Sulfolobus sRNA133: a 65-nucleotide RNA from Desulfurococcaceae archaeon AG1. The family has 3 seed sequences and 27 matches in Rfam 15.1. The base pairs follow the family's consensus structure. Rfam classes the family as a small RNA. Rfam's curators write: This RNA has structural homologues in 3 archaeon Sulfolobus genomes: tokodaii, acidocalarius and solfotaricus. On this family, see Tang et al., Mol Microbiol 2005: "Identification of novel non-coding RNAs as potential antisense regulators in the archaeon Sulfolobus solfataricus".

RNA sequence: AAGUCAGCCAAUGAGGCUCCCCAUGUCCCCGAGGGGAGGCUAGCUCCCGCAGGCGGCAUGGAGAG
Numbered sequence: 001a002a003g004u005c006a007g008c009c010a011a012u013g014a015g016g017c018u019c020c021c022c023a024u025g026u027c028c029c030c031g032a033g034g035g036g037a038g039g040c041u042a043g044c045u046c047c048c049g050c051a052g053g054c055g056g057c058a059u060g061g062a063g064a065g
Base pairs, nucleotide, nucleotide: 017063018062019061020060024058025057026056027055029053030052034048035047036046037045038044